[Rfam]
RNA sequence: GUCGGGGUAGUGCCCCGUGAAAAGCGUUGGGCGGCUUGGGACGCA
Numbered sequence: 001g002u003c004g005g006g007g008u009a010g011u012g013c014c015c016c017g018u019g020a021a022a023a024g025c026g027u028u029g030g031g032c033g034g035c036u037u038g039g040g041a042c043g044c045a
Stems, first nucleotide, its partner, number of pairs: 012032004017027002
The record is a 45-nucleotide RNA sequence from Mycobacterium parascrofulaceum, which matches "Mycobacterium sRNA Ms_AS-5" in Rfam. It is annotated as a small RNA. The source organism's lineage runs through Bacteria, Bacillati, Actinomycetes, Mycobacteriales and Mycobacterium parascrofulaceum.